[Rfam]
Nucleotides: 295
Stems, first nucleotide, its partner, number of pairs: 040056005060175005070168007085154003090150002095111005112136007176191003181202001183200001186198002259275004266291006
Number, partner (000 for none) and nucleotide at each position: 001000c002000c003000u004000c005000u006000u007000u008000a009000a010000a011000a012000a013000g014000a015000u016000u017000c018000a019000a020000u021000a022000u023000c024000a025000a026000u027000c028000u029000a030000u031000a032000u033000u034000c035000a036000g037000a038000u039000u040056g041055c042054u043053g044052g045000g046000g047000a048000u049000a050000u051000c052044c053043u054042a055041g056040c057000u058000a059000u060175a061174g062173a063172g064171a065000u066000a067000a068000a069000c070168g071167g072166c073165u074164u075163a076162c077000a078000u079000a080000a081000u082000a083000c084000c085154c086153a087152u088000u089000a090150c091149g092000g093000a094000c095111c096110c097109g098108g099107g100000g101000g102000c103000g104000g105000u106000a107099c108098c109097c110096g111095g112136c113135a114134c115133c116132u117131c118130c119000a120000c121000c122000a123000u124000a125000u126000u127000u128000u129000a130118g131117g132116g133115g134114g135113u136112g137000a138000u139000a140000u141000a142000g143000g144000a145000u146000c147000g148000a149091c150090g151000a152087a153086u154085g155000u156000u157000u158000a159000a160000a161000g162076g163075u164074a165073a166072g167071u168070u169000u170000u171064u172063c173062u174061c175060u176191c177190g178189g179000c180000a181202u182000u183200g184000u185000a186198c187197c188000a189178c190177c191176g192000u193000u194000a195000u196000c197187g198186g199000g200183c201000u202181a203000a204000c205000u206000u207000u208000u209000a210000a211000a212000u213000g214000c215000u216000a217000a218000c219000a220000a221000u222000a223000a224000a225000u226000u227000a228000g229000c230000g231000c232000u233000c234000g235000c236000u237000g238000c239000u240000u241000a242000a243000u244000a245000u246000a247000a248000u249000u250000a251000g252000g253000c254000a255000a256000g257000c258000g259275c260274g261273g262272u263000u264000u265000g266291g267290g268289a269288g270287a271286c272262a273261c274260c275259g276000g277000g278000c279000a280000a281000c282000a283000g284000a285000a286271g287270u288269c289268u290267c291266c292000c293000a294000c295000a